[Rfam]
RNA: S4-Clostridia ribosomal protein leader
RNA sequence: GAAAGGGUGUGUCGUUCUGUGGAUAUGUGACAUGCCUGGGCUGGGAUAUCGGUGGAUUUUCACCGGUAGGAUAUAAUAACCGACAACGCAGUUGCUUGGUCCGUCAUUUUAUUGGCUAAUGUCCGCAGCCUCAAUUAGG
Numbered sequence: 001g002a003a004a005g006g007g008u009g010u011g012u013c014g015u016u017c018u019g020u021g022g023a024u025a026u027g028u029g030a031c032a033u034g035c036c037u038g039g040g041c042u043g044g045g046a047u048a049u050c051g052g053u054g055g056a057u058u059u060u061c062a063c064c065g066g067u068a069g070g071a072u073a074u075a076a077u078a079a080c081c082g083a084c085a086a087c088g089c090a091g092u093u094g095c096u097u098g099g100u101c102c103g104u105c106a107u108u109u110u111a112u113u114g115g116c117u118a119a120u121g122u123c124c125g126c127a128g129c130c131u132c133a134a135u136u137a138g139g
Base pairs, nucleotide, nucleotide: 005037006036007035008034009033010032011031012030013029014028015027038131039130040129041128042127043126